[Rfam]
RNA sequence: AACUUAUCAAGAGCAGGGGAGGAAACUGGUCCUUCGAUCCUGCAGCAACCACUUAUCCAACUAAGAAAGGUGCUAAUUCCAGCAGGCAUUUACCAUGUCUGACAGAUGAGAU
Numbered sequence: 001a002a003c004u005u006a007u008c009a010a011g012a013g014c015a016g017g018g019g020a021g022g023a024a025a026c027u028g029g030u031c032c033u034u035c036g037a038u039c040c041u042g043c044a045g046c047a048a049c050c051a052c053u054u055a056u057c058c059a060a061c062u063a064a065g066a067a068a069g070g071u072g073c074u075a076a077u078u079c080c081a082g083c084a085g086g087c088a089u090u091u092a093c094c095a096u097g098u099c100u101g102a103c104a105g106a107u108g109a110g111a112u
Base pairs, nucleotide, nucleotide: 001112003110004109005108006107007106008105013043014042015041016040017039021032022031023030026082027081028080029079044074045073046072047071049070050069052065053064054063078104083101084100085099086098087097088096
A member of the RNA family "SAM riboswitch aptamer (S box leader)" from Terrihalobacillus insolitus, 112 nucleotides long. Pairs were carried over by alignment from the consensus structure, which is taken from published work. Taxonomically the source falls in Terrihalobacillus (Bacteria, Bacillota, Bacilli, Caryophanales).